Overview:
Small nucleolar RNA SNORD72: a 79-nucleotide RNA from Oreochromis niloticus. The literature on the family includes a 2001 paper in EMBO J by Huttenhofer et al., "RNomics: an experimental approach that identifies 201 candidates for novel, small, non-messenger RNAs in mouse". snoRNA HBII-240 belongs to the CD family of snoRNAs. The family's RNA type in Rfam is C/D-box small nucleolar RNA.
[Rfam]
RNA sequence: UGCUCACCAAUGAUGGUGAAAAAAAAAUGUCUGAACAAAUGAACUUAAUAUGACAUCACUAUUUUCUCUGAGGUGAGUG
Numbered sequence: 001u002g003c004u005c006a007c008c009a010a011u012g013a014u015g016g017u018g019a020a021a022a023a024a025a026a027a028u029g030u031c032u033g034a035a036c037a038a039a040u041g042a043a044c045u046u047a048a049u050a051u052g053a054c055a056u057c058a059c060u061a062u063u064u065u066c067u068c069u070g071a072g073g074u075g076a077g078u079g
Base pairs, nucleotide, nucleotide: 002078003077004076005075006074007073008072